[Rfam]
RNA sequence: UGUCAAGAGUCUAGGCGUCGAUUCGGCGAGCAGAUUUCUUUUGCCUAAUCGAGGGUGAAAGAAAAUG
Numbered sequence: 001u002g003u004c005a006a007g008a009g010u011c012u013a014g015g016c017g018u019c020g021a022u023u024c025g026g027c028g029a030g031c032a033g034a035u036u037u038c039u040u041u042u043g044c045c046u047a048a049u050c051g052a053g054g055g056u057g058a059a060a061g062a063a064a065a066u067g
Base pairs, nucleotide, nucleotide: 010062011061012060016057017056018055019054022053023052024051025050026049028046030044031043032042033041034040
Description
Rfam assigns this 67-nucleotide RNA sequence from Mesorhizobium japonicum to the family "S-element". Its family is annotated with translation regulator activity and mRNA transcription in the Gene Ontology. From the family's description: This family represents a group of S-elements from p42d and related plasmids. The S-element has multiple functions and is believed to act as a negative regulator of repC transcription, be required for efficient replication and act as a translational enhancer of repC. The sequence is in the family's curated seed alignment. Taxonomically the source falls in Mesorhizobium japonicum (Bacteria, Pseudomonadati, Hyphomicrobiales, Phyllobacteriaceae).